[Rfam]
RNA: SAH (S-adenosyl-L-homocysteine) riboswitch aptamer
RNA sequence: AUUGUUGAGGAACGUUGCGAGGUUAUUCCCAUAACCCUAGGCUCAACAGCAUUGGAGAAACAUCAUGGUUUUUCUCUGAUAGUAACGGCGUUCAUCUAAU
Numbered sequence: 001a002u003u004g005u006u007g008a009g010g011a012a013c014g015u016u017g018c019g020a021g022g023u024u025a026u027u028c029c030c031a032u033a034a035c036c037c038u039a040g041g042c043u044c045a046a047c048a049g050c051a052u053u054g055g056a057g058a059a060a061c062a063u064c065a066u067g068g069u070u071u072u073u074c075u076c077u078g079a080u081a082g083u084a085a086c087g088g089c090g091u092u093c094a095u096c097u098a099a100u
Stems, first nucleotide, its partner, number of pairs: 002049007021036006